[Rfam]
Source information: The family of this 167-nucleotide sequence from Paenibacillus sp. IHBB 10380 is "c-di-AMP riboswitch aptamer (ydaO/yuaA leader)". Rfam's curators write: This family represents a conserved RNA structure found upstream of the ydaO and yuaA genes in Bacillus subtilis and related genes in other bacteria. The match comes from Rfam's covariance-model search (96 bits). The source organism's lineage runs through Bacteria, Bacilli, Caryophanales, Paenibacillaceae and Paenibacillus.

RNA sequence: UCAUUUCAAACGCUGAAUUCCCGAAUAGGGAAAUGGGGGAACCAACCGAGCCACGAAAAAUGUGGUUUCAUGGGGUGAAUCCUUAUGCUUGCAACACAAGCACUUAGGUAGGGCACUCUCAAGCCCGAAUCCGACAGCUAACCUCGUAAGCGUAGUUGAGAGAGAAC
Number, nucleotide and partner (000 for none) at each position: 001u000002c000003a000004u000005u000006u000007c000008a000009a000010a000011c152012g151013c150014u149015g000016a000017a000018u032019u031020c030021c029022c028023g000024a000025a000026u000027a000028g022029g021030g020031a019032a018033a147034u146035g145036g144037g143038g142039g000040a000041a000042c000043c072044a071045a000046c000047c000048g000049a000050g000051c000052c000053a000054c000055g000056a000057a000058a000059a000060a000061u000062g000063u000064g000065g000066u000067u000068u000069c000070a000071u044072g043073g132074g131075g130076u000077g000078a000079a000080u000081c108082c107083u106084u000085a000086u000087g000088c000089u000090u000091g000092c000093a000094a000095c000096a000097c000098a000099a000100g000101c000102a000103c000104u000105u000106a083107g082108g081109u000110a000111g126112g125113g124114c123115a000116c000117u000118c000119u000120c000121a000122a000123g114124c113125c112126c111127g000128a000129a000130u075131c074132c073133g000134a000135c000136a000137g000138c000139u000140a000141a000142c038143c037144u036145c035146g034147u033148a000149a014150g013151c012152g011153u000154a000155g000156u000157u000158g000159a000160g000161a000162g000163a000164g000165a000166a000167c000